[Rfam]
RNA sequence: GGAUCGGGAGGCCGCCAUUCGGGACGACGGCCAUGAAUUGAUCCAACCCCACUGUCUCGUAUGGACAAGGUGCCGGGGCCCGGCGGUGCUCUUG
Numbered sequence: 001g002g003a004u005c006g007g008g009a010g011g012c013c014g015c016c017a018u019u020c021g022g023g024a025c026g027a028c029g030g031c032c033a034u035g036a037a038u039u040g041a042u043c044c045a046a047c048c049c050c051a052c053u054g055u056c057u058c059g060u061a062u063g064g065a066c067a068a069g070g071u072g073c074c075g076g077g078g079c080c081c082g083g084c085g086g087u088g089c090u091c092u093u094g
Stems, first nucleotide, its partner, number of pairs: 001044005010032005016026001066094005071088005